[Rfam]
RNA sequence: GGUCCGUGAUGGCUCUUGGCAUGUAUUAUCUGAGCAGAAAGCUGAAGAUGAGCGUUUUGGCUCCAGAAUUUGUCUGAGACCUG
Numbered sequence: 001g002g003u004c005c006g007u008g009a010u011g012g013c014u015c016u017u018g019g020c021a022u023g024u025a026u027u028a029u030c031u032g033a034g035c036a037g038a039a040a041g042c043u044g045a046a047g048a049u050g051a052g053c054g055u056u057u058u059g060g061c062u063c064c065a066g067a068a069u070u071u072g073u074c075u076g077a078g079a080c081c082u083g
Stems, first nucleotide, its partner, number of pairs: 001081004